[Rfam]
RNA sequence: CUCCCCGAAAUGCAUUUAGGUGCAGCGUUGCGUGGUUGCUUGGGUGGGGUAGAGCACUGGUUGGUUGAUGGGCCUUCGCGGGUUACUGAGAUCAGCCAAACUCCGAAUACGCCUGAGUUUGAGCGUGGCAGUGAGACGGCGGGGGAGAAGCUUCGUCGUCGAGAGGGAAACAGCCCAGAGCAUCGGCUAAGGCCCCUAAGUGUGCGCUUAGUGGGAAAGGAUGUGGGAUCGCCGAGACAACCAGGAGGUUGGCUUAGAAGCAGCCAUCCUUGAAAGAGUGCGUAAUAGCUCACUGGUCAAGUGGUCCUGCGCCGACAAUGUAGCGGGGCUGAAGCGCACCGCCGAAGCCAUGCCAGCGACACUGUUUGGUGUUGUUGGGUAGGGGAGCGUCCUGCAUGCGGUGAAGCGCCGGAGUGAUCCUGGUGUGGAGUGUGUGGGAGUGAGAAU
Numbered sequence: 001c002u003c004c005c006c007g008a009a010a011u012g013c014a015u016u017u018a019g020g021u022g023c024a025g026c027g028u029u030g031c032g033u034g035g036u037u038g039c040u041u042g043g044g045u046g047g048g049g050u051a052g053a054g055c056a057c058u059g060g061u062u063g064g065u066u067g068a069u070g071g072g073c074c075u076u077c078g079c080g081g082g083u084u085a086c087u088g089a090g091a092u093c094a095g096c097c098a099a100a101c102u103c104c105g106a107a108u109a110c111g112c113c114u115g116a117g118u119u120u121g122a123g124c125g126u127g128g129c130a131g132u133g134a135g136a137c138g139g140c141g142g143g144g145g146a147g148a149a150g151c152u153u154c155g156u157c158g159u160c161g162a163g164a165g166g167g168a169a170a171c172a173g174c175c176c177a178g179a180g181c182a183u184c185g186g187c188u189a190a191g192g193c194c195c196c197u198a199a200g201u202g203u204g205c206g207c208u209u210a211g212u213g214g215g216a217a218a219g220g221a222u223g224u225g226g227g228a229u230c231g232c233c234g235a236g237a238c239a240a241c242c243a244g245g246a247g248g249u250u251g252g253c254u255u256a257g258a259a260g261c262a263g264c265c266a267u268c269c270u271u272g273a274a275a276g277a278g279u280g281c282g283u284a285a286u287a288g289c290u291c292a293c294u295g296g297u298c299a300a301g302u303g304g305u306c307c308u309g310c311g312c313c314g315a316c317a318a319u320g321u322a323g324c325g326g327g328g329c330u331g332a333a334g335c336g337c338a339c340c341g342c343c344g345a346a347g348c349c350a351u352g353c354c355a356g357c358g359a360c361a362c363u364g365u366u367u368g369g370u371g372u373u374g375u376u377g378g379g380u381a382g383g384g385g386a387g388c389g390u391c392c393u394g395c396a397u398g399c400g401g402u403g404a405a406g407c408g409c410c411g412g413a414g415u416g417a418u419c420c421u422g423g424u425g426u427g428g429a430g431u432g433u434g435u436g437g438g439a440g441u442g443a444g445a446a447u
Base pairs, nucleotide, nucleotide: 001387002386003385004384005383006382011024012023013022014021015020026131027129028128029127030126031125032124033123037122038118039117040116041115042114043113044112045111046110052104053102054101058098059097060096062094063093064092065091070086071084072083073082074081075080135160136159137158138157139156140155141154142153143152144151165176166175167174180353181352182351183350185349186348187347191343192342193341200340202339203338204337205336206335207334219313220312223310224309225308226307227306228305229304230303231302232301240297241296242295243294244293246270247269248268251265252264253263271275276291280289281288354377355376356375357374358373359372360371361370388442390439391438392437393436394435395434396433397432398431399430406426407425408424409423410422411420412419413418
Shown here is a 447-nucleotide part of an RNA from Saccharopolyspora elongata, a member of the family "Bacterial large subunit ribosomal RNA". The source organism's lineage runs through Bacteria, Actinomycetota, Pseudonocardiales, Pseudonocardiaceae and Saccharopolyspora. Rfam 15.1 lists 51,934 matches to the family in 10,816 species. A search with the family's covariance model found it, with a score of 2695 bits. The family is grouped with related families in Rfam's "LSU clan".